The record is an 85-nucleotide sequence from Echeneis naucrates, which matches "mir-15 microRNA precursor family" in Rfam. Its family is annotated with miRNA-mediated post-transcriptional gene silencing and RISC complex in the Gene Ontology. A search with the family's covariance model found it, with a score of 62 bits. Taxonomically the source falls in Echeneis (Eukaryota, Craniata, Teleostomi, Carangiformes). The base pairs follow the family's consensus structure, which was predicted with RNAalifold. Rfam describes the family as follows. This family represents the related mir-15a and mir-15b sequences. In humans miR-15a and miR-16 are clustered within 0.5 kb at 13q14. This region has been shown to be deleted in more than half of B cell chronic lymphocytic leukaemias (CLL). Both miR-15a and miR-16 are deleted or down-regulated in more than two thirds of CLL cases.

[Rfam]
RNA sequence: CCUUAGACUGCUAUAGCAGCGCAUCAUGGUUUGAAACAAUGUGAAAAAAGUGCGAACCAUAAUUUGCUGCUCUAGAAUUUUAAGG
Numbered sequence: 001c002c003u004u005a006g007a008c009u010g011c012u013a014u015a016g017c018a019g020c021g022c023a024u025c026a027u028g029g030u031u032u033g034a035a036a037c038a039a040u041g042u043g044a045a046a047a048a049a050g051u052g053c054g055a056a057c058c059a060u061a062a063u064u065u066g067c068u069g070c071u072c073u074a075g076a077a078u079u080u081u082a083a084g085g
Base pairs, nucleotide, nucleotide: 001085002084003083004082005081006080013073015071016070017069018068019067020066021065023063024062026060027059028058029057030056031055032054033053035051